[Rfam]
RNA sequence: CGAGUGAGACGCAGCUAAGGAACUCGGCAAAUUAGCCCCGUAACUUCGGGAUAAGGGGCGCCUACUUCGGUAGGCCGCAGUGAAAAGGGCCAUGCGACUGUUUAACAAAAACACAUCUCUCUGCUAAGACGAUUUAAGUCGAUGUAUAGGGAGUGACACCUGCCCGGUGCUGGAAGGUUAAGGGGAUAUGUGCAAGCGUUGAACCGAAGCCCCAGUAAACGGCGGCCGUAACUAUAACGGUCCUAAGGUAGCGAAAUUCCUUGUCGGGUAAGUUCCGACCUGCACGAAUGGUGAAACGAUGUGGUCACUGUCUCGGCUGCGCGCUCG
Numbered sequence: 001c002g003a004g005u006g007a008g009a010c011g012c013a014g015c016u017a018a019g020g021a022a023c024u025c026g027g028c029a030a031a032u033u034a035g036c037c038c039c040g041u042a043a044c045u046u047c048g049g050g051a052u053a054a055g056g057g058g059c060g061c062c063u064a065c066u067u068c069g070g071u072a073g074g075c076c077g078c079a080g081u082g083a084a085a086a087g088g089g090c091c092a093u094g095c096g097a098c099u100g101u102u103u104a105a106c107a108a109a110a111a112c113a114c115a116u117c118u119c120u121c122u123g124c125u126a127a128g129a130c131g132a133u134u135u136a137a138g139u140c141g142a143u144g145u146a147u148a149g150g151g152a153g154u155g156a157c158a159c160c161u162g163c164c165c166g167g168u169g170c171u172g173g174a175a176g177g178u179u180a181a182g183g184g185g186a187u188a189u190g191u192g193c194a195a196g197c198g199u200u201g202a203a204c205c206g207a208a209g210c211c212c213c214a215g216u217a218a219a220c221g222g223c224g225g226c227c228g229u230a231a232c233u234a235u236a237a238c239g240g241u242c243c244u245a246a247g248g249u250a251g252c253g254a255a256a257u258u259c260c261u262u263g264u265c266g267g268g269u270a271a272g273u274u275c276c277g278a279c280c281u282g283c284a285c286g287a288a289u290g291g292u293g294a295a296a297c298g299a300u301g302u303g304g305u306c307a308c309u310g311u312c313u314c315g316g317c318u319g320c321g322c323g324c325u326c327g
Base pairs, nucleotide, nucleotide: 001327002326003325004324010321011320012319013318014317015316016315018313019312020311035059036058037057038056039055044049060075061074062073063072064071065070076080088306089305090304091303092302093301094300095298096297099113100112101111117153118152119151120150121149122148123147124144128140129139130138157293158292159291160290162223163222164221167220168219169216170215171214172213173212176211177210178209182205183204188199189198190197191196224242225241226240227239228238229237243247253280263279264278265277266276267275268274